[Rfam]
RNA sequence: GGUCAUGAGUUCCAGCGCACAGCCCCGGCUUGCUGGACGGCAACCCUCCACCGCGGUGGGGUGCUCCGGGUGACGACCUGGCCGCCACCAGCACCGGUGUCGGCAAGCGCGGGCC
Numbered sequence: 001g002g003u004c005a006u007g008a009g010u011u012c013c014a015g016c017g018c019a020c021a022g023c024c025c026c027g028g029c030u031u032g033c034u035g036g037a038c039g040g041c042a043a044c045c046c047u048c049c050a051c052c053g054c055g056g057u058g059g060g061g062u063g064c065u066c067c068g069g070g071u072g073a074c075g076a077c078c079u080g081g082c083c084g085c086c087a088c089c090a091g092c093a094c095c096g097g098u099g100u101c102g103g104c105a106a107g108c109g110c111g112g113g114c115c
Base pairs, nucleotide, nucleotide: 001078002077003076004075009038011037012036013035014034015033016032021030022029039065040064041063044061045060046059048056049055081104082103083102084101086099087098088097089096
Rfam assigns this 115-nucleotide RNA sequence from Dermacoccus nishinomiyaensis to the family "SAM (S-adenosyl methionine) riboswitch aptamer". Rfam links the family to the GO terms S-adenosylmethionine metabolic process and regulation of gene expression. The base pairs follow the family's consensus structure, which is taken from published work. About the family: SAM-IV is a mRNA element that regulates gene expression via direct sensing of S-adenosylmethionine (SAM or AdoMet). It scores 111 bits against the family's covariance model.